[Rfam]
RNA sequence: GCCAAAAAGGGUGAUGGCGUGCCACCCGUGAUAACCAACCGCCGUAAUCCACUUACGGAUGAUGACGCCUGAUGAUUA
Numbered sequence: 001g002c003c004a005a006a007a008a009g010g011g012u013g014a015u016g017g018c019g020u021g022c023c024a025c026c027c028g029u030g031a032u033a034a035c036c037a038a039c040c041g042c043c044g045u046a047a048u049c050c051a052c053u054u055a056c057g058g059a060u061g062a063u064g065a066c067g068c069c070u071g072a073u074g075a076u077u078a
Stems, first nucleotide, its partner, number of pairs: 010026004016069005042058006
Shown here is a 78-nucleotide RNA from Edwardsiella hoshinae, a member of the family "Fluoride riboswitch aptamer (crcB RNA motif)". Its family is annotated with positive regulation of gene expression and response to fluoride in the Gene Ontology. Taxonomically the source falls in Edwardsiella (Bacteria, Pseudomonadati, Pseudomonadota, Gammaproteobacteria).